[Rfam]
Shown here is an 83-nucleotide RNA from Streptomyces sp. NL15-2K, a member of the family "Streptomyces RNA 6106". Rfam's curators write: Identified by deep sequencing of transcriptome at the end of exponential growth phase. Appears smaller on northern blot than sequencing transcript. This indicates processing step. Streptomyces specific. Pairs were carried over by alignment from the consensus structure. The organism belongs to Streptomyces, within Bacteria. A reference for the family is Vockenhuber et al. (2011), "Deep sequencing-based identification of small non-coding RNAs in Streptomyces coelicolor", RNA Biol. The family's RNA type in Rfam is small RNA.
RNA sequence: ACGCCGCCGCGCGCGGCGUCCGCGGCUCGAAGGGGCCCAAGGGCGGGGGUGGUGCCGUGUCGGCGCAGCACCACCUCCGCCGC
Numbered sequence: 001a002c003g004c005c006g007c008c009g010c011g012c013g014c015g016g017c018g019u020c021c022g023c024g025g026c027u028c029g030a031a032g033g034g035g036c037c038c039a040a041g042g043g044c045g046g047g048g049g050u051g052g053u054g055c056c057g058u059g060u061c062g063g064c065g066c067a068g069c070a071c072c073a074c075c076u077c078c079g080c081c082g083c
Stems, first nucleotide, its partner, number of pairs: 001019007020042002024038002026035003043080013057066003